[Rfam]
Nucleotides: 154
Stems, first nucleotide, its partner, number of pairs: 003029004008024005032072005039066004044061002046057002076104006084096002109123003113119002127148001130145004
Number, partner (000 for none) and nucleotide at each position: 001000c002000c003029u004028c005027c006026g007000u008024u009023c010022u011021c012020c013000c014000c015000g016000c017000a018000c019000a020012g021011g022010a023009g024008a025000a026006c027005g028004g029003a030000u031000c032072g033071a034070g035069g036068c037000a038000c039066c040065c041064g042063g043000c044061g045060c046057u047056c048000u049000c050000u051000g052000c053000c054000c055000u056047g057046a058000c059000u060045g061044c062000g063042c064041c065040g066039g067000u068036g069035c070034c071033u072032c073000u074000c075000u076104c077103g078102g079101c080100c081099g082000g083000a084096g085095g086000a087000a088000c089000c090000g091000c092000a093000c094000a095085c096084c097000a098000c099081c100080g101079g102078c103077c104076g105000c106000g107000c108000a109123g110122c111121u112000u113119c114118g115000g116000g117000c118114u119113g120000c121111g122110g123109u124000g125000c126000c127148g128000u129000u130145c131144g132143g133142g134000c135000c136000g137000a138000g139000g140000g141000u142133c143132c144131c145130g146000u147000c148127c149000u150000g151000g152000c153000g154000c